[Rfam]
Record summary:
Rfam assigns this 124-nucleotide RNA sequence from Octodon degus to the family "Small nucleolar RNA SNORA31". Rfam describes the family as follows. ACA31 (SNORA31) belongs to the H/ACA class of snoRNAs which are thought to guide the sites of modification of uridines to pseudouridines. ACA31 is predicted to guide the pseudouridylation of U3713 in 28S rRNA and U218 in 18S rRNA. This family includes the mouse homologue snoMBI-161. Its family is annotated with nucleolus and RNA processing in the Gene Ontology. Rfam 15.1 lists 2,094 matches to the family in 626 species. It scores 111 bits against the family's covariance model. On this family, see Huttenhofer et al., EMBO J 2001: "RNomics: an experimental approach that identifies 201 candidates for novel, small, non-messenger RNAs in mouse".

RNA sequence: AAUCCACUGAUAGACCUUGGACAAAUUGUUGUUCUUUGGGUUUGCACUAGGAUGCUAAAGGAAGAAAUCCCUAGGCUUUCUGUCUGUCUUUAUGGUAGCCCAGAUUGAAUUGGGGAGUACAUCU
Number, nucleotide and partner (000 for none) at each position: 001a000002a053003u052004c051005c050006a000007c000008u046009g045010a000011u044012a043013g042014a041015c040016c039017u000018u000019g034020g033021a032022c031023a030024a029025a000026u000027u000028g000029u024030u023031g022032u021033u020034c019035u000036u000037u000038g000039g016040g015041u014042u013043u012044g011045c009046a008047c000048u000049a000050g005051g004052a003053u002054g000055c000056u000057a000058a000059a000060g000061g000062a000063a000064g000065a000066a000067a000068u116069c115070c114071c113072u112073a111074g000075g000076c107077u000078u000079u104080c103081u102082g101083u000084c098085u097086g096087u095088c094089u000090u000091u000092a000093u000094g088095g087096u086097a085098g084099c000100c000101c082102a081103g080104a079105u000106u000107g076108a000109a000110u000111u073112g072113g071114g070115g069116a068117g000118u000119a000120c000121a000122u000123c000124u000